This 340-nucleotide RNA from Prodigiosinella confusarubida belongs to the Rfam family "RNase E 5' UTR element". The match comes from Rfam's covariance-model search (266 bits). Pairs were carried over by alignment from the consensus structure, which is taken from published work. A reference for the family is Diwa et al. (2000), "An evolutionarily conserved RNA stem-loop functions as a sensor that directs feedback regulation of RNase E gene expression", Genes Dev. NCBI's taxonomy places the organism under Bacteria, Pseudomonadati, Pseudomonadota, Pectobacteriaceae, Prodigiosinella. Its family is annotated with regulation of gene expression in the Gene Ontology. Rfam describes the family as follows. This family represents a conserved element found in the 5' UTR of RNase E mRNA. RNase E is a key regulatory enzyme in the pathway of mRNA degradation in E. coli that is able to auto-regulate the degradation of its own mRNA in response to changes in RNase E activity. Rfam classes the family as a cis-regulatory element.
RNA sequence: UUUUCCAUGCUGAUUUCCAUUAGAACAAGGGAAAUUGCGGAAUUAUUAUAUUUGCCUGAUUACACAUAAACGCAGCAAUGGCGUAAGACGUAUUGUUUAAUCAAGCAGUUAGCGAGCUGCGGUUUGCAGCUUGGCCGGCAUAUGGAAUCAGGUCUGGUAAUAUAUUUUCAGAAGCUGUUCCCGCAGUAAAUGCGCUGUAACUCCCGCCAGGAUCUACAGGCUACCGAAAAAUGCGUCUCUAUGCAGUCGACAACCGGGAGGUUGACGUCUCUGCAAUAAGCCUCGAGGCCAUCGGUUCUCUCCGGUCAUGCACCGUAUUUAUCCGCAGCUCUAUCAAUAA
Numbered sequence: 001u002u003u004u005c006c007a008u009g010c011u012g013a014u015u016u017c018c019a020u021u022a023g024a025a026c027a028a029g030g031g032a033a034a035u036u037g038c039g040g041a042a043u044u045a046u047u048a049u050a051u052u053u054g055c056c057u058g059a060u061u062a063c064a065c066a067u068a069a070a071c072g073c074a075g076c077a078a079u080g081g082c083g084u085a086a087g088a089c090g091u092a093u094u095g096u097u098u099a100a101u102c103a104a105g106c107a108g109u110u111a112g113c114g115a116g117c118u119g120c121g122g123u124u125u126g127c128a129g130c131u132u133g134g135c136c137g138g139c140a141u142a143u144g145g146a147a148u149c150a151g152g153u154c155u156g157g158u159a160a161u162a163u164a165u166u167u168u169c170a171g172a173a174g175c176u177g178u179u180c181c182c183g184c185a186g187u188a189a190a191u192g193c194g195c196u197g198u199a200a201c202u203c204c205c206g207c208c209a210g211g212a213u214c215u216a217c218a219g220g221c222u223a224c225c226g227a228a229a230a231a232u233g234c235g236u237c238u239c240u241a242u243g244c245a246g247u248c249g250a251c252a253a254c255c256g257g258g259a260g261g262u263u264g265a266c267g268u269c270u271c272u273g274c275a276a277u278a279a280g281c282c283u284c285g286a287g288g289c290c291a292u293c294g295g296u297u298c299u300c301u302c303c304g305g306u307c308a309u310g311c312a313c314c315g316u317a318u319u320u321a322u323c324c325g326c327a328g329c330u331c332u333a334u335c336a337a338u339a340a
Base pairs, nucleotide, nucleotide: 003042004041005040006039008037014032015031016030017029052108053107054106055105057103058102059101064096065095066094070091071090072089075082076081114331115330116329117328118327119326120325121324122323124321132308133307134306135305136304137303138302144181145180146179147178148177153172154171155170156169157168192221193220195219196218197217198216200213202212203211204210223296224295225294226293227292235289236288237287238286239285248267249266251264252263253262254261255260